[Rfam]
RNA: Drosophila small cajal body-specific RNA PsiU6-40
Organism: Drosophila ananassae
RNA sequence: UAGGGAUUAAGGUCCUUGAUUAUGGAAAGAGUGAAGAACAAUCUACUCUUUCCAUUUCGACCUGAUCCUAGAUCAAAAAUCAGGAACUCUGUGUGGUGGCAUUCAAGAUUGUGGCACUUCAUCGUUCUUCCUGAGACAGUUUU
Numbered sequence: 001u002a003g004g005g006a007u008u009a010a011g012g013u014c015c016u017u018g019a020u021u022a023u024g025g026a027a028a029g030a031g032u033g034a035a036g037a038a039c040a041a042u043c044u045a046c047u048c049u050u051u052c053c054a055u056u057u058c059g060a061c062c063u064g065a066u067c068c069u070a071g072a073u074c075a076a077a078a079a080u081c082a083g084g085a086a087c088u089c090u091g092u093g094u095g096g097u098g099g100c101a102u103u104c105a106a107g108a109u110u111g112u113g114g115c116a117c118u119u120c121a122u123c124g125u126u127c128u129u130c131c132u133g134a135g136a137c138a139g140u141u142u143u
Stems, first nucleotide, its partner, number of pairs: 004068006011062004022055007033047001035044003075143004081133006089124001091122003095118004100113003